This 80-nucleotide sequence from Myotis lucifugus belongs to the Rfam family "mir-9186 microRNA precursor family". NCBI's taxonomy places the organism under Eukaryota, Bilateria, Vertebrata, Mammalia, Myotis. Rfam links the family to the GO terms RISC complex and miRNA-mediated post-transcriptional gene silencing.
RNA sequence: UAAGGGGAGGUUGGCGGCGUGUCUGGUACUUACGUAAUGGCUGCCCACAGUACCAGCCAUGCCGCCUCCCUCCCCCUACA
Numbered sequence: 001u002a003a004g005g006g007g008a009g010g011u012u013g014g015c016g017g018c019g020u021g022u023c024u025g026g027u028a029c030u031u032a033c034g035u036a037a038u039g040g041c042u043g044c045c046c047a048c049a050g051u052a053c054c055a056g057c058c059a060u061g062c063c064g065c066c067u068c069c070c071u072c073c074c075c076c077u078a079c080a
Stems, first nucleotide, its partner, number of pairs: 001078002004075002007072004013066008023056008